The record is a 136-nucleotide RNA sequence from Croceibacterium salegens, which matches "Y RNA-like" in Rfam. The family has 6 seed sequences and 124 matches in Rfam 15.1. A reference for the family is Chen et al. (2013), "An RNA degradation machine sculpted by Ro autoantigen and noncoding RNA", Cell. In Deinococcus radiodurans Rsr is tethered via Y RNA to the exoribonuclease PNPase and channels single-stranded RNA into the PNPase cavity. Rsr and Y RNA enhance degradation of structured RNAs by PNPase. This role could be conserved, as Rsr and ncRNAs called YrlA and YrlB (Y RNA like) also associate with PNPase in an evolutionary distant bacterium Salmonella Typhimurium.
RNA sequence: ACGGCGAAUGCUGGAAGGACUACAUCGAAUUGUAAUCGCCAGGUCGCGGGUUCGAAUCCCGCCAGGUCCACCAACUAUGGGCCUGUAGCUCAGCGGGUAGAGCAGGAACGUCUUUCCAAAACCUCGUCGCCGUGAA
Numbered sequence: 001a002c003g004g005c006g007a008a009u010g011c012u013g014g015a016a017g018g019a020c021u022a023c024a025u026c027g028a029a030u031u032g033u034a035a036u037c038g039c040c041a042g043g044u045c046g047c048g049g050g051u052u053c054g055a056a057u058c059c060c061g062c063c064a065g066g067u068c069c070a071c072c073a074a075c076u077a078u079g080g081g082c083c084u085g086u087a088g089c090u091c092a093g094c095g096g097g098u099a100g101a102g103c104a105g106g107a108a109c110g111u112c113u114u115u116c117c118a119a120a121a122c123c124u125c126g127u128c129g130c131c132g133u134g135a136a
Stems, first nucleotide, its partner, number of pairs: 002132006013117007023106001040105001046062005053097001063085008088103004